[Rfam]
RNA sequence: ACUGUUUAAUUAAAACAAAGCAUCGUGAGGGCCCGAGAGACGGGUGUUGAUGCGAUGUGAU
Number, nucleotide and partner (000 for none) at each position: 001a000002c000003u017004g016005u015006u000007u000008a000009a000010u000011u000012a000013a000014a000015a005016c004017a003018a000019a000020g058021c057022a056023u055024c054025g053026u052027g051028a000029g047030g000031g045032c044033c043034c042035g000036a000037g000038a000039g000040a000041c000042g034043g033044g032045u031046g000047u029048u000049g000050a000051u027052g026053c025054g024055a023056u022057g021058u020059g000060a000061u000
A member of the RNA family "Eukaryotic large subunit ribosomal RNA" from Acipenser ruthenus, 61 nucleotides of a longer RNA. Its family is annotated with structural constituent of ribosome and ribosome in the Gene Ontology. Clan: LSU clan. NCBI's taxonomy places the organism under Eukaryota, Euteleostomi, Acipenseroidei, Acipenseridae, Acipenser. Pairs were carried over by alignment from the consensus structure, which is taken from published work.